RNA sequence: AUAACCGCGAAGUCGCGGCGCCGUCAAGACACGACGGUGAGUGGGGAGCAUUACCCCCCCAAAACCCUGGGGAUACAGGGCCCA
Numbered sequence: 001a002u003a004a005c006c007g008c009g010a011a012g013u014c015g016c017g018g019c020g021c022c023g024u025c026a027a028g029a030c031a032c033g034a035c036g037g038u039g040a041g042u043g044g045g046g047a048g049c050a051u052u053a054c055c056c057c058c059c060c061a062a063a064a065c066c067c068u069g070g071g072g073a074u075a076c077a078g079g080g081c082c083c084a
Stems, first nucleotide, its partner, number of pairs: 004074001005018005012049001019039007043057004058072003065080005